[Rfam]
RNA sequence: UGGAAGAAUCUGUUAAGCUCAGGAGGGAUAGCGCCCUAAGGAUAAUCAUGGGCUCUUUUUAUGUGGUUUUUGAUUCUCAGUGGCGCUAUCCAUCCUGAGUUUCAUUGCUUCUUCUU
Number, nucleotide and partner (000 for none) at each position: 001u000002g000003g000004a000005a000006g000007a000008a000009u000010c107011u000012g000013u000014u000015a000016a101017g100018c099019u098020c097021a096022g095023g094024a093025g000026g091027g090028a089029u088030a087031g086032c085033g084034c083035c082036c000037u000038a000039a000040g000041g000042a000043u000044a000045a000046u000047c000048a000049u000050g000051g000052g000053c000054u000055c000056u000057u000058u000059u000060u000061a000062u000063g000064u000065g000066g000067u000068u000069u000070u000071u000072g000073a000074u000075u000076c000077u000078c000079a000080g000081u000082g035083g034084c033085g032086c031087u030088a029089u028090c027091c026092a000093u024094c023095c022096u021097g020098a019099g018100u017101u016102u000103c000104a000105u000106u000107g010108c000109u000110u000111c000112u000113u000114c000115u000116u000

Overview
This 116-nucleotide RNA sequence from Populus trichocarpa belongs to the Rfam family "MIR390 microRNA precursor family". It is one of the family's seed sequences. The family's consensus secondary structure was predicted with WAR. For this family Rfam cites "ASRP: the Arabidopsis Small RNA Project Database" (Gustafson et al., Nucleic Acids Res, 2005).